[Rfam]
RNA: mir-92 microRNA precursor family
Organism: Python bivittatus
RNA sequence: CUUCCUCCGUGGGUUGGGAUUUGUUGUAUUACUCGGAGAUCUCUGAACAGUAUUGCACUUGUCCCGGCCUGUGGAGGACCG
Numbered sequence: 001c002u003u004c005c006u007c008c009g010u011g012g013g014u015u016g017g018g019a020u021u022u023g024u025u026g027u028a029u030u031a032c033u034c035g036g037a038g039a040u041c042u043c044u045g046a047a048c049a050g051u052a053u054u055g056c057a058c059u060u061g062u063c064c065c066g067g068c069c070u071g072u073g074g075a076g077g078a079c080c081g
Base pairs, nucleotide, nucleotide: 004077005076006075009072010071011070012069013068014067016065017064018063019062020061023058024057026056027055028054030052031051032050033049